[Rfam]
RNA sequence: AAUGCUACUUCCACGCCAGUGGCCCGCAUAAGUGACGGGAAAAUGCACACCCACGUUUGAGAAAGAAUGUGGGCGGCUUUUU
Numbered sequence: 001a002a003u004g005c006u007a008c009u010u011c012c013a014c015g016c017c018a019g020u021g022g023c024c025c026g027c028a029u030a031a032g033u034g035a036c037g038g039g040a041a042a043a044u045g046c047a048c049a050c051c052c053a054c055g056u057u058u059g060a061g062a063a064a065g066a067a068u069g070u071g072g073g074c075g076g077c078u079u080u081u082u
Base pairs, nucleotide, nucleotide: 011022012021013020014019023039024038025037026036040082041081042080043079045077048075052071053070054069055068056067
RNA: dinG RNA